[Rfam]
RNA: Mammalian CPEB3 ribozyme
Organism: Chrysemys picta
RNA sequence: AUAGCAGUAGGAGGAGCACUCACAUUGUAGCCCUGGUCAGAUUCUCUGAAUCUGCAAAUCCUGCU
Dot-bracket structure: [..[[...((.(((((((.......))).]]..]...(((((((...)))))))....)))).))
Numbered sequence: 001a002u003a004g005c006a007g008u009a010g011g012a013g014g015a016g017c018a019c020u021c022a023c024a025u026u027g028u029a030g031c032c033c034u035g036g037u038c039a040g041a042u043u044c045u046c047u048g049a050a051u052c053u054g055c056a057a058a059u060c061c062u063g064c065u
Stems, first nucleotide, its partner, number of pairs: 001034001004031002009065002012062004016028003038054007